Record summary: Rfam assigns this 99-nucleotide RNA from Algoriphagus machipongonensis to the family "SAM riboswitch aptamer (S box leader)". Lineage of the source: Bacteria > Pseudomonadati > Bacteroidota > Cyclobacteriaceae > Algoriphagus. The sequence is in the family's curated seed alignment.
RNA sequence: AGCUUAUCGAGAAAGACUGAGGGAAGGGCCCGACGACGUCUUAGCAACCUGUAACCAAGGUGCUAAUUCCCAUCCCGAAUAUUCGGGAAUAGAUGAGCG
Numbered sequence: 001a002g003c004u005u006a007u008c009g010a011g012a013a014a015g016a017c018u019g020a021g022g023g024a025a026g027g028g029c030c031c032g033a034c035g036a037c038g039u040c041u042u043a044g045c046a047a048c049c050u051g052u053a054a055c056c057a058a059g060g061u062g063c064u065a066a067u068u069c070c071c072a073u074c075c076c077g078a079a080u081a082u083u084c085g086g087g088a089a090u091a092g093a094u095g096a097g098c099g
Stems, first nucleotide, its partner, number of pairs: 002098007013042005021031003026071003043064004048060002051055001068091001073088006